[Rfam]
RNA sequence: GACUUUCUUCGCGCGGGAGUGCGACCCGCUACACCGCUGAUCUGCGAGUUCAUCGACGACCACAAGGACCGGUUCGGGGUCGUACCGAUCUGCCGCGCCCUGGAUACCCAGGGCGCGGCAGAUCGCCCCG
Numbered sequence: 001g002a003c004u005u006u007c008u009u010c011g012c013g014c015g016g017g018a019g020u021g022c023g024a025c026c027c028g029c030u031a032c033a034c035c036g037c038u039g040a041u042c043u044g045c046g047a048g049u050u051c052a053u054c055g056a057c058g059a060c061c062a063c064a065a066g067g068a069c070c071g072g073u074u075c076g077g078g079g080u081c082g083u084a085c086c087g088a089u090c091u092g093c094c095g096c097g098c099c100c101u102g103g104a105u106a107c108c109c110a111g112g113g114c115g116c117g118g119c120a121g122a123u124c125g126c127c128c129c130g
Base pairs, nucleotide, nucleotide: 013029014028015027016026017025075130076129077128078127079126086125087124089122090121091120092119093118094117095116096115097114098113099112100111101110102109103108
Overview
A member of the RNA family "ALIL pseudoknot" from Mycobacterium pseudokansasii, 130 nucleotides long. By type it is a cis-regulatory element.